[Rfam]
RNA sequence: AUUUCUGAGGAACAUGUUUCCUUUUGUUUAUGAAAAAGGAACUUUUUUUAUUGGAAAUAUUGUCAGUGUGUUGUAAUUGUGCAGCGGCCAGACAACCGUAGGGAUGGUAUCCACAGAUGAUGGGUUUUUCCACUCACUUGUCUACUGAAUCCAUCCCACAUGU
Numbered sequence: 001a002u003u004u005c006u007g008a009g010g011a012a013c014a015u016g017u018u019u020c021c022u023u024u025u026g027u028u029u030a031u032g033a034a035a036a037a038g039g040a041a042c043u044u045u046u047u048u049u050a051u052u053g054g055a056a057a058u059a060u061u062g063u064c065a066g067u068g069u070g071u072u073g074u075a076a077u078u079g080u081g082c083a084g085c086g087g088c089c090a091g092a093c094a095a096c097c098g099u100a101g102g103g104a105u106g107g108u109a110u111c112c113a114c115a116g117a118u119g120a121u122g123g124g125u126u127u128u129u130c131c132a133c134u135c136a137c138u139u140g141u142c143u144a145c146u147g148a149a150u151c152c153a154u155c156c157c158a159c160a161u162g163u
Stems, first nucleotide, its partner, number of pairs: 002057005009049003014044001016042001018041008101157007109150001120139001122137001124135001